The record is a 67-nucleotide RNA sequence from Brucella anthropi, which matches "S-element" in Rfam. The base pairs follow the family's consensus structure, which is taken from published work. Its family is annotated with mRNA transcription and translation regulator activity in the Gene Ontology. A reference for the family is Venkova-Canova et al. (2004), "Two discrete elements are required for the replication of a repABC plasmid: an antisense RNA and a stem-loop structure", Mol Microbiol. The family's RNA type in Rfam is cis-regulatory element.
RNA sequence: UGUCAAGCGUUUUGACGUCGUUUGCGGCGAACGGAUCUCUUUUGCCUUCAGUUAGGUGAGAGAAAUG
Numbered sequence: 001u002g003u004c005a006a007g008c009g010u011u012u013u014g015a016c017g018u019c020g021u022u023u024g025c026g027g028c029g030a031a032c033g034g035a036u037c038u039c040u041u042u043u044g045c046c047u048u049c050a051g052u053u054a055g056g057u058g059a060g061a062g063a064a065a066u067g
Stems, first nucleotide, its partner, number of pairs: 010063002012060002016058004022054001024052002027049001029047001032044004